[Rfam]
RNA sequence: UCGUCAGGCUCAGUCCCCUCCCGAUAAAAGCCUAAAUCGGGACCUUCUCAGGGGAAGACCCUGACCU
Numbered sequence: 001u002c003g004u005c006a007g008g009c010u011c012a013g014u015c016c017c018c019u020c021c022c023g024a025u026a027a028a029a030g031c032c033u034a035a036a037u038c039g040g041g042a043c044c045u046u047c048u049c050a051g052g053g054g055a056a057g058a059c060c061c062u063g064a065c066c067u
Stems, first nucleotide, its partner, number of pairs: 003065003007061002010058002014055006023047002026045001031040002
RNA: mir-484 microRNA precursor family
Organism: Fukomys damarensis